[Rfam]
Shown here is a 52-nucleotide RNA sequence from Myotis davidii, a member of the family "mir-1302 microRNA precursor family".
The match comes from Rfam's covariance-model search (66 bits).
Its family is annotated with RISC complex and miRNA-mediated post-transcriptional gene silencing in the Gene Ontology.
Taxonomically the source falls in Myotis (Eukaryota, Sarcopterygii, Yangochiroptera, Vespertilionidae).
A reference for the family is Morin et al. (2008), "Application of massively parallel sequencing to microRNA profiling and discovery in human embryonic stem cells", Genome Res.
RNA sequence: UUUUUAGUAGAAGUAUGUUCCAUGCAGUAUUUGGGACAUACUUCUACUUUAA
Numbered sequence: 001u002u003u004u005u006a007g008u009a010g011a012a013g014u015a016u017g018u019u020c021c022a023u024g025c026a027g028u029a030u031u032u033g034g035g036a037c038a039u040a041c042u043u044c045u046a047c048u049u050u051a052a
Base pairs, nucleotide, nucleotide: 006048007047008046009045010044011043012042014040015039016038018036019035020034021033022031